[Rfam]
RNA sequence: UGCAAGUAUUUUACAAUUAAGAAGCAACUGUCUCUUGUACAAAUUGUUUAUUAAUGU
Number, nucleotide and partner (000 for none) at each position: 001u000002g000003c000004a000005a000006g000007u000008a000009u000010u000011u000012u000013a000014c000015a000016a000017u000018u037019a036020a035021g034022a033023a000024g031025c030026a000027a000028c000029u000030g025031u024032c000033u022034c021035u020036u019037g018038u000039a000040c000041a000042a000043a000044u000045u000046g000047u000048u000049u000050a000051u000052u000053a000054a000055u000056g000057u000

Rfam assigns this 57-nucleotide RNA sequence from Populus alba to the family "Plastid-rps18 3UTR RNA".
Plastid rps18 is a non-coding RNA (ncRNA) present in plastids. It was identified as a short stem-loop motif in the 3 prime untranslate region (3UTR) of rps18 gene.
By type it is a cis-regulatory element.
The organism belongs to Populus, within Eukaryota.
A reference for the family is Richter et al. (2023), "Retrograde signaling in plants: A critical review focusing on the GUN pathway and beyond", Plant Commun.
A search with the family's covariance model found it, with a score of 77 bits.
The family has 238 seed sequences and 1,462 matches in Rfam 15.1.
The base pairs follow the family's consensus structure, which was predicted with LocARNA.